Record summary
FMN riboswitch aptamer (RFN element): a 146-nucleotide RNA from Pseudovibrio exalbescens. The family's consensus secondary structure is taken from published work. Rfam describes the family as follows. The RFN element is a highly conserved domain that is found frequently in the 5'-untranslated regions of prokaryotic mRNAs that encode for flavin mononucleotide (FMN) biosynthesis and transport proteins. This element is a metabolite-dependent riboswitch that directly binds FMN in the absence of proteins.
RNA sequence: ACUGAUUCUCAGGGCGGGGUGAAAGUCCCCACCGGUGGUAAUGGGUCGCGGCUCUAGUCCACGAGCGCUGUCGUGCAAGCGGCAGGUCAGCAGAUCCGGUGCGAUUCCGGAACCGACGGUCAUAGUCCGGAUGAAAGAGAAAAACC
Numbered sequence: 001a002c003u004g005a006u007u008c009u010c011a012g013g014g015c016g017g018g019g020u021g022a023a024a025g026u027c028c029c030c031a032c033c034g035g036u037g038g039u040a041a042u043g044g045g046u047c048g049c050g051g052c053u054c055u056a057g058u059c060c061a062c063g064a065g066c067g068c069u070g071u072c073g074u075g076c077a078a079g080c081g082g083c084a085g086g087u088c089a090g091c092a093g094a095u096c097c098g099g100u101g102c103g104a105u106u107c108c109g110g111a112a113c114c115g116a117c118g119g120u121c122a123u124a125g126u127c128c129g130g131a132u133g134a135a136a137g138a139g140a141a142a143a144a145c146c
Stems, first nucleotide, its partner, number of pairs: 003144001006141005017029003031126002033115002035062004057113002065091002095111005117129003